[Rfam]
RNA sequence: CAACGUUUGAAUCGGGUUUCGCGAUAAGCGGGUUUUAAAACUUUAUUAAAAAAUAAUUCGUUGUCGACGAAACCUGCAUACAACGUUU
Numbered sequence: 001c002a003a004c005g006u007u008u009g010a011a012u013c014g015g016g017u018u019u020c021g022c023g024a025u026a027a028g029c030g031g032g033u034u035u036u037a038a039a040a041c042u043u044u045a046u047u048a049a050a051a052a053a054u055a056a057u058u059c060g061u062u063g064u065c066g067a068c069g070a071a072a073c074c075u076g077c078a079u080a081c082a083a084c085g086u087u088u
Stems, first nucleotide, its partner, number of pairs: 002087005013076009030059005